ZMP/ZTP riboswitch aptamer (pfl RNA motif): an 82-nucleotide RNA sequence from Devosia geojensis. The family's consensus secondary structure is taken from published work.
RNA sequence: GGCCCAUCGCGCGACUGGCGAUUUGAGAUGGGCAACCAUCGGGGAGCGCGUGUCUGAACUGCCGAUCGCCUGGGCGGCCGGG
Numbered sequence: 001g002g003c004c005c006a007u008c009g010c011g012c013g014a015c016u017g018g019c020g021a022u023u024u025g026a027g028a029u030g031g032g033c034a035a036c037c038a039u040c041g042g043g044g045a046g047c048g049c050g051u052g053u054c055u056g057a058a059c060u061g062c063c064g065a066u067c068g069c070c071u072g073g074g075c076g077g078c079c080g081g082g
Base pairs, nucleotide, nucleotide: 005052008050009049010048011047012046015043016042017070018069019068020067021066028039029038030037031036059077060076061075062074063073

A search with the family's covariance model found it, with a score of 60 bits.